[Rfam]
RNA sequence: UACCUCCGGCCAAGUGGGGCCGGGGAAGGACCAAUCGGGGUCGAUAUG
Numbered sequence: 001u002a003c004c005u006c007c008g009g010c011c012a013a014g015u016g017g018g019g020c021c022g023g024g025g026a027a028g029g030a031c032c033a034a035u036c037g038g039g040g041u042c043g044a045u046a047u048g
Base pairs, nucleotide, nucleotide: 004025005024006023007022008021009020010019011018029042030041031040032039